[Rfam]
RNA: mir-83 microRNA precursor family
RNA sequence: GAUCUCUGAAUCCUGAAUUUGUUUGUGUGCUGGACAGAACCCAUCUCUAGCACCAUUUAAAUUCAGCAUUUCUGAGG
Numbered sequence: 001g002a003u004c005u006c007u008g009a010a011u012c013c014u015g016a017a018u019u020u021g022u023u024u025g026u027g028u029g030c031u032g033g034a035c036a037g038a039a040c041c042c043a044u045c046u047c048u049a050g051c052a053c054c055a056u057u058u059a060a061a062u063u064c065a066g067c068a069u070u071u072c073u074g075a076g077g
Stems, first nucleotide, its partner, number of pairs: 013066009024055002027053002030050002033047002